RNA sequence: GAGCAGACAGUUAUCCCUUUUUAGCCUGUUGUGGUUCUAGAGGGAGUCAGUCUGCUAAAGCAAACGGGGGAGGCCGUGCUGUGCCCAGCCCAGUGCCCUGGUGCAGGCUGCAGGUCUCCCCCACACCU
Numbered sequence: 001g002a003g004c005a006g007a008c009a010g011u012u013a014u015c016c017c018u019u020u021u022u023a024g025c026c027u028g029u030u031g032u033g034g035u036u037c038u039a040g041a042g043g044g045a046g047u048c049a050g051u052c053u054g055c056u057a058a059a060g061c062a063a064a065c066g067g068g069g070g071a072g073g074c075c076g077u078g079c080u081g082u083g084c085c086c087a088g089c090c091c092a093g094u095g096c097c098c099u100g101g102u103g104c105a106g107g108c109u110g111c112a113g114g115u116c117u118c119c120c121c122c123a124c125a126c127c128u
Stems, first nucleotide, its partner, number of pairs: 003055006020041005025034002067121007075114001077112001083108003089103001090101004
Rfam assigns this 128-nucleotide sequence from Cisticola juncidis to the family "Small nucleolar RNA SNORA56".
About the family: ACA56 is a member of the H/ACA class of snoRNA that guide the sites of modification of uridines to pseudouridines.
The match comes from Rfam's covariance-model search (82 bits).
Clan: SNORA56 clan.
Rfam classes the family as an H/ACA-box small nucleolar RNA.